[Rfam]
RNA: mir-551 microRNA precursor family
Nucleotides: 074
Base pairs, nucleotide, nucleotide: 003072004071005070006069009066010065011064012063013062014061016059017058021054022053023052024051029048030047031046
Number, partner (000 for none) and nucleotide at each position: 001000u002000c003072a004071c005070c006069u007000u008000g009066g010065a011064a012063a013062u014061c015000a016059a017058g018000a019000g020000u021054g022053g023052g024051u025000g026000g027000g028000a029048c030047c031046u032000g033000u034000g035000g036000a037000u038000g039000u040000a041000a042000g043000a044000g045000u046031a047030g048029g049000c050000g051024a052023c053022c054021c055000a056000c057000u058017c059016u060000u061014g062013g063012u064011u065010u066009c067000a068000c069006a070005g071004g072003u073000c074000a